A member of the RNA family "tRNA" from Roseobacter phage DSS3P8, 72 nucleotides long.
A search with the family's covariance model found it, with a score of 69 bits.
The family's consensus secondary structure is taken from published work.
Taxonomically the source falls in Caudoviricetes (Viruses, Duplodnaviria, Heunggongvirae, Uroviricota).
It is annotated as a transfer RNA.
RNA sequence: GCAGGUAUAGCUCAGCGGAAGAGCAUCUGGUUGCCAAUCAGAAGGCCGUGGGUUCGACCCCCACUACCUGCU
Number, nucleotide and partner (000 for none) at each position: 001g071002c070003a069004g068005g067006u066007a065008u000009a000010g024011c023012u022013c021014a000015g000016c000017g000018g000019a000020a000021g013022a012023g011024c010025a000026u042027c041028u040029g039030g038031u000032u000033g000034c000035c000036a000037a000038u030039c029040a028041g027042a026043a000044g000045g000046c000047c000048g064049u063050g062051g061052g060053u000054u000055c000056g000057a000058c000059c000060c052061c051062c050063a049064c048065u007066a006067c005068c004069u003070g002071c001072u000